RNA sequence: AAUGCAAUGAUGAGAUUAAGCACCGUUUGGGUGUUUAGGGCAGUGGAUUAACGCCGUGAGCCUAUUAAUUAAACGACUUCUCCUUCCACUGAGCAUU
Numbered sequence: 001a002a003u004g005c006a007a008u009g010a011u012g013a014g015a016u017u018a019a020g021c022a023c024c025g026u027u028u029g030g031g032u033g034u035u036u037a038g039g040g041c042a043g044u045g046g047a048u049u050a051a052c053g054c055c056g057u058g059a060g061c062c063u064a065u066u067a068a069u070u071a072a073a074c075g076a077c078u079u080c081u082c083c084u085u086c087c088a089c090u091g092a093g094c095a096u097u
Base pairs, nucleotide, nucleotide: 001097002096003095004094005093

Rfam assigns this 97-nucleotide RNA from Phtheirospermum japonicum to the family "Small nucleolar RNA Z152/R70/R12/". On this family, see Barneche et al., J Mol Biol 2001: "Identification of 66 box C/D snoRNAs in Arabidopsis thaliana: extensive gene duplications generated multiple isoforms predicting new ribosomal RNA 2'-O-methylation sites". Gene Ontology terms of the family: nucleolus and RNA processing. Lineage of the source: Eukaryota > Tracheophyta > Magnoliopsida > lamiids > Phtheirospermum. A search with the family's covariance model found it, with a score of 90 bits.